[Rfam]
RNA: SAM (S-adenosyl methionine) riboswitch aptamer
Organism: Geodermatophilus dictyosporus
RNA sequence: GCUCCUGAGCGACAGCGUGAAGUACCUGGCUGGCUGUCCGGCAACCUCCUCCUCCGUCUGAGGUGCUCCCAGGGGAAGAGCCGGCCGUGCGGCGACCGCCGCGCGGCAAGGACGGAGC
Number, nucleotide and partner (000 for none) at each position: 001g081002c080003u079004c078005c000006u000007g000008a000009g039010c000011g038012a037013c036014a035015g034016c033017g000018u000019g000020a000021a031022g030023u000024a000025c000026c000027u000028g000029g000030c022031u021032g000033g016034c015035u014036g013037u012038c011039c009040g067041g066042c065043a000044a000045c063046c062047u061048c000049c056050u000051c000052c000053u000054c000055c000056g049057u000058c000059u000060g000061a047062g046063g045064u000065g042066c041067u040068c000069c000070c000071a000072g000073g000074g000075g000076a000077a000078g004079a003080g002081c001082c000083g000084g107085c106086c105087g104088u103089g102090c101091g100092g099093c098094g000095a000096c000097c000098g093099c092100c091101g090102c089103g088104c087105g086106g085107c084108a000109a000110g000111g000112a000113c000114g000115g000116a000117g000118c000